A member of the RNA family "Gammaproteobacterial sRNA STnc100" from Escherichia coli, 209 nucleotides long.
Lineage of the source: Bacteria > Pseudomonadati > Enterobacterales > Escherichia > Escherichia coli.
The family has 24 seed sequences and 137 matches in Rfam 15.1.
Rfam classes the family as a small RNA.

[Rfam]
RNA sequence: UUUUGCGGGGAGUUUGUUAAAAGAAACUGGCAUGGUGAAUCCCCCUGUGCGGAGGGGCAAUCAGCAACUGGUGUUUUGUCACCGACCCUUAUCCUUUCUGUGCGGGUUCAGGUGCUGAUACUGAACUCACCGGGAGGCACCCGGCAUCAUGUGCAUGAUGAUACAGAUACGCGGCUUUAGCCCCUCUCCGGAGGGGCUUUCUUGUGGGC
Dot-bracket structure: .............(((.............((((((((....(((((......)))))......(.(.........................).)...(...).((((.(((.........))).)))).(((((.....)))))))))))))......)))........(.(......(((((((......))))))).......).).